[Rfam]
RNA sequence: UUGACUGGCCAUGACGUUAAAACACUAAAUCCCUGGGAUGUGUUUUAGUUGAUUACCGGUGAA
Numbered sequence: 001u002u003g004a005c006u007g008g009c010c011a012u013g014a015c016g017u018u019a020a021a022a023c024a025c026u027a028a029a030u031c032c033c034u035g036g037g038a039u040g041u042g043u044u045u046u047a048g049u050u051g052a053u054u055a056c057c058g059g060u061g062a063a
Stems, first nucleotide, its partner, number of pairs: 001063002004060002016049010030038003